[Rfam]
RNA: Glycine riboswitch aptamer
Organism: Muribacter muris
RNA sequence: CCCUUGGAGAGAUCCACUCCGCGAGUGCGGAAAAUGGACGCCGAAGGCGCAAGCGUAGUUAUCUGCGUGAAACGCUCAGGCAAAAGGACAGGGG
Numbered sequence: 001c002c003c004u005u006g007g008a009g010a011g012a013u014c015c016a017c018u019c020c021g022c023g024a025g026u027g028c029g030g031a032a033a034a035u036g037g038a039c040g041c042c043g044a045a046g047g048c049g050c051a052a053g054c055g056u057a058g059u060u061a062u063c064u065g066c067g068u069g070a071a072a073c074g075c076u077c078a079g080g081c082a083a084a085a086g087g088a089c090a091g092g093g094g
Stems, first nucleotide, its partner, number of pairs: 001094006013038004040081003043077002047075003053068006